[Rfam]
RNA sequence: AUAUGCUUGUUUCAAGGACUUAGCCAUGCAUGCCUCAGAAUCACUGCAUUUGCAGGAAUCUGCGCAUGGCUCAUUACAUCAGACGUAAUCUGCCGCAAGAAUUUAGCGGUUUACCGUUCUAUUGGAUAACUUGUGCGAAACGCCAAGCUAAUACAUGAACCAACCGGGUGCUCUCCUUUUGCGGGACGCAGCGAAUGAAUGACAGUAAAACCAAUGCCUUCACGGGCAGUAACACCUAGCCGUGUUGACUCAAUUCAUUCCGUGCGAAAGCCGAUUUCCCGGUUUUUUGACGAACAACUGCCCUAUCAGCUUGUGAUGGCCGUGUAGUGGACUGCCAUGGCGUUGACGGGAGCGGGGGAUUAGGGUUCGAUUCCGGAGAGGGAGCCUGAGAAAUAGCUACCACUUCUACGGAGGGCAGCAGGCGCGUAAAUUGCCCAAUGUCAAAAAAAAACGAUGAGGCAGCGAAAAGAAAUAGGUUUCAUAGUCCCUUUCGGGAUUGUGAUUUCAAUGGGGGAUAUUUAAACCCAUCCAAUAUCGAGUAACAAUUGGAGGACAAGUCUGGUGCCAGCACCCGCGGUAAUUCCAGCUCCAAAAGCGUAU
Numbered sequence: 001a002u003a004u005g006c007u008u009g010u011u012u013c014a015a016g017g018a019c020u021u022a023g024c025c026a027u028g029c030a031u032g033c034c035u036c037a038g039a040a041u042c043a044c045u046g047c048a049u050u051u052g053c054a055g056g057a058a059u060c061u062g063c064g065c066a067u068g069g070c071u072c073a074u075u076a077c078a079u080c081a082g083a084c085g086u087a088a089u090c091u092g093c094c095g096c097a098a099g100a101a102u103u104u105a106g107c108g109g110u111u112u113a114c115c116g117u118u119c120u121a122u123u124g125g126a127u128a129a130c131u132u133g134u135g136c137g138a139a140a141c142g143c144c145a146a147g148c149u150a151a152u153a154c155a156u157g158a159a160c161c162a163a164c165c166g167g168g169u170g171c172u173c174u175c176c177u178u179u180u181g182c183g184g185g186a187c188g189c190a191g192c193g194a195a196u197g198a199a200u201g202a203c204a205g206u207a208a209a210a211c212c213a214a215u216g217c218c219u220u221c222a223c224g225g226g227c228a229g230u231a232a233c234a235c236c237u238a239g240c241c242g243u244g245u246u247g248a249c250u251c252a253a254u255u256c257a258u259u260c261c262g263u264g265c266g267a268a269a270g271c272c273g274a275u276u277u278c279c280c281g282g283u284u285u286u287u288u289g290a291c292g293a294a295c296a297a298c299u300g301c302c303c304u305a306u307c308a309g310c311u312u313g314u315g316a317u318g319g320c321c322g323u324g325u326a327g328u329g330g331a332c333u334g335c336c337a338u339g340g341c342g343u344u345g346a347c348g349g350g351a352g353c354g355g356g357g358g359a360u361u362a363g364g365g366u367u368c369g370a371u372u373c374c375g376g377a378g379a380g381g382g383a384g385c386c387u388g389a390g391a392a393a394u395a396g397c398u399a400c401c402a403c404u405u406c407u408a409c410g411g412a413g414g415g416c417a418g419c420a421g422g423c424g425c426g427u428a429a430a431u432u433g434c435c436c437a438a439u440g441u442c443a444a445a446a447a448a449a450a451a452c453g454a455u456g457a458g459g460c461a462g463c464g465a466a467a468a469g470a471a472a473u474a475g476g477u478u479u480c481a482u483a484g485u486c487c488c489u490u491u492c493g494g495g496a497u498u499g500u501g502a503u504u505u506c507a508a509u510g511g512g513g514g515a516u517a518u519u520u521a522a523a524c525c526c527a528u529c530c531a532a533u534a535u536c537g538a539g540u541a542a543c544a545a546u547u548g549g550a551g552g553a554c555a556a557g558u559c560u561g562g563u564g565c566c567a568g569c570a571c572c573c574g575c576g577g578u579a580a581u582u583c584c585a586g587c588u589c590c591a592a593a594a595g596c597g598u599a600u
Base pairs, nucleotide, nucleotide: 001600002599003598004597005596006595007594010470011469012468016463017425023423024422025421027420028419029418032063033062037061038060039059044055045054070378071377072376080300081299082298085295086294089293090292095288097287098286123155124154130147131146132145133144135143136142166189168187171184172183195258196257197256198255199254200253209246210245211244217226218225219224271282272281273280302350303349304348309341310340311339316338317337318336319335320334322332323331353375354374355373356372357368358367359366360365380401381400383398384397385396403414404413405412406411431461433460434459435458439456440455441454442453476506479502480501481500482499483498484497485496486495487494488493512536513535514533516532546592547591548590549589550588551587559586560585561584562583568575569574

The record is a 600-nucleotide part of an RNA from Strigomonas oncopelti, which matches "Eukaryotic small subunit ribosomal RNA" in Rfam. For this family Rfam cites "Crystal structure of the ribosome at 5.5 A resolution" (Yusupov et al., Science, 2001). The base pairs follow the family's consensus structure, which is taken from published work.